[Rfam]
RNA sequence: UCAUGAGAACCAAUUGCUACAACAGUAGAGGAAAGUCCGGGCAUCCACAAUCUGCGAUGAUUGUAGUGUUUGUACUGCGUCUAAUAAAUGCAGGUAGCUUUUUGCUAACGACAGAUGGAAGACCUAAACCUUCUGGCAAGGUUGUGAAAUCAUAAAGUGCCACAGAAACAAAUGCGUUUUGAAAAGAACGAAUGAAAAGAGGUAAACUCUGCAAGGAUGAAACCCAAAUUUUGGUAGGGGAAUCUAGUUUUGAAGAAUUGAAUUCAAGACAGAAUGCAUUAUGCAUAGAUAAAUAAUUGGUUGAAAAACAGAACUCGGCUUAUCA
Numbered sequence: 001u002c003a004u005g006a007g008a009a010c011c012a013a014u015u016g017c018u019a020c021a022a023c024a025g026u027a028g029a030g031g032a033a034a035g036u037c038c039g040g041g042c043a044u045c046c047a048c049a050a051u052c053u054g055c056g057a058u059g060a061u062u063g064u065a066g067u068g069u070u071u072g073u074a075c076u077g078c079g080u081c082u083a084a085u086a087a088a089u090g091c092a093g094g095u096a097g098c099u100u101u102u103u104g105c106u107a108a109c110g111a112c113a114g115a116u117g118g119a120a121g122a123c124c125u126a127a128a129c130c131u132u133c134u135g136g137c138a139a140g141g142u143u144g145u146g147a148a149a150u151c152a153u154a155a156a157g158u159g160c161c162a163c164a165g166a167a168a169c170a171a172a173u174g175c176g177u178u179u180u181g182a183a184a185a186g187a188a189c190g191a192a193u194g195a196a197a198a199g200a201g202g203u204a205a206a207c208u209c210u211g212c213a214a215g216g217a218u219g220a221a222a223c224c225c226a227a228a229u230u231u232u233g234g235u236a237g238g239g240g241a242a243u244c245u246a247g248u249u250u251u252g253a254a255g256a257a258u259u260g261a262a263u264u265c266a267a268g269a270c271a272g273a274a275u276g277c278a279u280u281a282u283g284c285a286u287a288g289a290u291a292a293a294u295a296a297u298u299g300g301u302u303g304a305a306a307a308a309c310a311g312a313a314c315u316c317g318g319c320u321u322a323u324c325a
Base pairs, nucleotide, nucleotide: 008323009301010300011299012298013297014296015295017028018027019026020025033321034320035319037318038317039316040315041314042219043218044217045216046215047064048063049062050061051060052059070214071213072212073211074210075093076092077091078090079089080088094109095107096106097105098104110209111208114151115150116149121143122142123141124140129136130135157207158206159203160202161201175190176189177188178187179186180185223239224238225237243273244272245271247270248269249268250267274286275285276284277283278282
Rfam assigns this 325-nucleotide RNA sequence from Coprobacillus cateniformis to the family "Bacterial RNase P class B". Rfam describes the family as follows. Ribonuclease P (RNase P) is a ubiquitous endoribonuclease, found in archaea, bacteria and eukarya as well as chloroplasts and mitochondria. Its best characterised activity is the generation of mature 5'-ends of tRNAs by cleaving the 5'-leader elements of precursor-tRNAs. Cellular RNase Ps are ribonucleoproteins. RNA from bacterial RNase Ps retains its catalytic activity in the absence of the protein subunit, i.e. it is a ribozyme. Isolated eukaryotic and archaeal RNase P RNA has not been shown to retain its catalytic function, but is still essential for the catalytic activity of the holoenzyme. Although the archaeal and eukaryotic holoenzyme s have a much greater protein content than the bacterial ones, the RNA cores from all the three lineages are homologous -- helices corresponding to P1, P2, P3, P4, and P10/11 are common to all cellular RNase P RNAs. Yet, there is considerable sequence variation, particularly among the eukaryotic RNAs. The family's consensus secondary structure is taken from published work. By type it is a ribozyme. NCBI's taxonomy places the organism under Bacteria, Bacillota, Erysipelotrichia, Coprobacillaceae, Coprobacillus.